[Rfam]
The record is a 345-nucleotide RNA sequence from Dialister micraerophilus, which matches "Bacterial RNase P class A" in Rfam. By type it is a ribozyme.
RNA sequence: CGAGCAGAAAAGAUGAUUGCAGGCUUUAAAGCGUGAGGAAAGUCCGAGCUCCGCAGGGCAGGAUGCCGGAUAACGUCCGGCGAGGGUGACCUCAGGGAAAGUGCCAUAGAAAAGGAAACCGCCGUUUUACGGUAAGGGUGGAAAGGUACGGUAAGAGCGUACCGGCAACUUGAGUAAUCAGUUGGCCUGGUAAACCCCAUCCGGAGCAAGACCGAAUAGGGAAGGGUUGAAGUUGCCCGCUGACCUUCCGGGUUGUGUCGCUCGAUCUGUAGAGCAAUCUGCAGACUAGAUAGAUAAUCAUCACCGUUUUACGGUACAGAACUCGGCUUAUUGAAUGCUCGCUUG
Dot-bracket structure: ((((((...(((((((((.((.(((....))).))....[[[.[[[[[((((...[[[[.((((((((((.....)))))(((((....)))).)((...(((((.............(((((((...)))))..)).......((((((.......)))))).(((((.(((....))))))).)..)))..)))))))))))))...((((......((((((.....(((.]]]])))..)))))).....).)))......((((((((....))))))))..........)))))))...................]]]]]]]].))...))))))....